[Rfam]
RNA: Plastid-rps18 3UTR RNA
RNA sequence: UGCAAGUAUUUUACGUUUCAAAAGCAACUGUUUCUUGUACAGAUUGUAUAUUAAUCU
Numbered sequence: 001u002g003c004a005a006g007u008a009u010u011u012u013a014c015g016u017u018u019c020a021a022a023a024g025c026a027a028c029u030g031u032u033u034c035u036u037g038u039a040c041a042g043a044u045u046g047u048a049u050a051u052u053a054a055u056c057u
Stems, first nucleotide, its partner, number of pairs: 018037001020035001022033004